Shown here is a 76-nucleotide RNA from Anisodus acutangulus, a member of the family "Plastid-ycf2 5UTR RNA".
RNA sequence: GUGCAUCCAGUAGGAAUUGAACCUAUGAAUUCACCAAUUAUGAGUUGGGCACUUUAACCAUUCACCAAAUGGAUGC
Numbered sequence: 001g002u003g004c005a006u007c008c009a010g011u012a013g014g015a016a017u018u019g020a021a022c023c024u025a026u027g028a029a030u031u032c033a034c035c036a037a038u039u040a041u042g043a044g045u046u047g048g049g050c051a052c053u054u055u056a057a058c059c060a061u062u063c064a065c066c067a068a069a070u071g072g073a074u075g076c
Stems, first nucleotide, its partner, number of pairs: 003076006010026005040070002044066001046064004

The match comes from Rfam's covariance-model search (75 bits). Rfam's curators write: Plastid ycf2 is a non-coding RNA (ncRNA) recognised in plastids. It was found in the prime untranslated region (5UTR) of ycf2 genes, it presents a tRNA-like motif which suggests it can be involved in mRNA maturation, particularly involved in defining the precise 5' end of the transcript.